[Rfam]
This 117-nucleotide RNA sequence from Aurantiacibacter xanthus belongs to the Rfam family "ALIL pseudoknot". Its family is annotated with positive regulation of translational frameshifting in the Gene Ontology. The base pairs follow the family's consensus structure, which is taken from published work.

RNA sequence: UGCUUAUUUUGCCCAGGCGGAGCUCGACCGCCCACUGAAGCGAUGAGCGGGUUCAUCGACGAGCAUCGCGAGGAGUACGGGGUCGAGCCGAUCUGCAGGGUUUUGCCGAUCGCCCCA
Numbered sequence: 001u002g003c004u005u006a007u008u009u010u011g012c013c014c015a016g017g018c019g020g021a022g023c024u025c026g027a028c029c030g031c032c033c034a035c036u037g038a039a040g041c042g043a044u045g046a047g048c049g050g051g052u053u054c055a056u057c058g059a060c061g062a063g064c065a066u067c068g069c070g071a072g073g074a075g076u077a078c079g080g081g082g083u084c085g086a087g088c089c090g091a092u093c094u095g096c097a098g099g100g101u102u103u104u105g106c107c108g109a110u111c112g113c114c115c116c117a
Stems, first nucleotide, its partner, number of pairs: 016032005079116004089112002092109002095106004